[Rfam]
RNA sequence: UCGUCGGGUAGGAUCAUCGUUACCUGUUCCCCCUUCGGGAGGGCAGAUGUGAACGUGAUGAUCAGAGCUCGUGUGAUUCGUGGUUAGUGUCUCGGUGUGGCCAGGACCUGCAGCACCUUGGUCACUCCUGUAUGAU
Numbered sequence: 001u002c003g004u005c006g007g008g009u010a011g012g013a014u015c016a017u018c019g020u021u022a023c024c025u026g027u028u029c030c031c032c033c034u035u036c037g038g039g040a041g042g043g044c045a046g047a048u049g050u051g052a053a054c055g056u057g058a059u060g061a062u063c064a065g066a067g068c069u070c071g072u073g074u075g076a077u078u079c080g081u082g083g084u085u086a087g088u089g090u091c092u093c094g095g096u097g098u099g100g101c102c103a104g105g106a107c108c109u110g111c112a113g114c115a116c117c118u119u120g121g122u123c124a125c126u127c128c129u130g131u132a133u134g135a136u
Stems, first nucleotide, its partner, number of pairs: 024046003028043003032039002075093002079089002081086001097125009
U8 small nucleolar RNA: a 136-nucleotide sequence from Canis lupus. The family's consensus secondary structure is taken from published work. NCBI's taxonomy places the organism under Eukaryota, Sarcopterygii, Theria, Laurasiatheria, Canis lupus.